[Rfam]
RNA sequence: GGUGUCUGUGAUGUCGUUUUUACCUACAUUGUUUGACUCCUCGUGAGAAAAAAAAAUUAAAAUUCUGAGACACCC
Numbered sequence: 001g002g003u004g005u006c007u008g009u010g011a012u013g014u015c016g017u018u019u020u021u022a023c024c025u026a027c028a029u030u031g032u033u034u035g036a037c038u039c040c041u042c043g044u045g046a047g048a049a050a051a052a053a054a055a056a057u058u059a060a061a062a063u064u065c066u067g068a069g070a071c072a073c074c075c
Stems, first nucleotide, its partner, number of pairs: 001074001003072004